Shown here is a 47-nucleotide RNA sequence from Schistosoma mattheei, a member of the family "Histone 3' UTR stem-loop". Its family is annotated with mRNA 3'-end processing by stem-loop binding and cleavage in the Gene Ontology. On this family, see Dominski and Marzluff, Gene 1999: "Formation of the 3' end of histone mRNA". It scores 38 bits against the family's covariance model. The family has 50 seed sequences and 44,596 matches in Rfam 15.1.

RNA sequence: GUAAAGGCCCUUUUCAGGGCCACCCCACAAUUUGAUUACCAUUAUUU
Numbered sequence: 001g002u003a004a005a006g007g008c009c010c011u012u013u014u015c016a017g018g019g020c021c022a023c024c025c026c027a028c029a030a031u032u033u034g035a036u037u038a039c040c041a042u043u044a045u046u047u
Stems, first nucleotide, its partner, number of pairs: 006021006